[Rfam]
RNA sequence: GGCUCAAAUUUGAAGUAGAGUAGAUUUGUAGGAUCAACUGACUACACUUAUCUACUCCACUUCAAGUUUGCGCCC
Numbered sequence: 001g002g003c004u005c006a007a008a009u010u011u012g013a014a015g016u017a018g019a020g021u022a023g024a025u026u027u028g029u030a031g032g033a034u035c036a037a038c039u040g041a042c043u044a045c046a047c048u049u050a051u052c053u054a055c056u057c058c059a060c061u062u063c064a065a066g067u068u069u070g071c072g073c074c075c
Stems, first nucleotide, its partner, number of pairs: 001074003005070005011064006018057006025050001028047002032043001034041002